Source information
A member of the RNA family "Small nucleolar RNA SNORD74" from Anguilla anguilla, 85 nucleotides long. A search with the family's covariance model found it, with a score of 60 bits. Its family is annotated with nucleolus and RNA processing in the Gene Ontology. Pairs were carried over by alignment from the consensus structure, which was predicted with PFOLD. By type it is a C/D-box small nucleolar RNA.
RNA sequence: CGCCAUUUUGAAUGAUGAAAAAUGUGUUGGUAGGGACAUCUGAGUGAUAAUGAUGAAACGCCAACCUUUCUGACGUCGCAUGGCG
Numbered sequence: 001c002g003c004c005a006u007u008u009u010g011a012a013u014g015a016u017g018a019a020a021a022a023u024g025u026g027u028u029g030g031u032a033g034g035g036a037c038a039u040c041u042g043a044g045u046g047a048u049a050a051u052g053a054u055g056a057a058a059c060g061c062c063a064a065c066c067u068u069u070c071u072g073a074c075g076u077c078g079c080a081u082g083g084c085g
Stems, first nucleotide, its partner, number of pairs: 001085005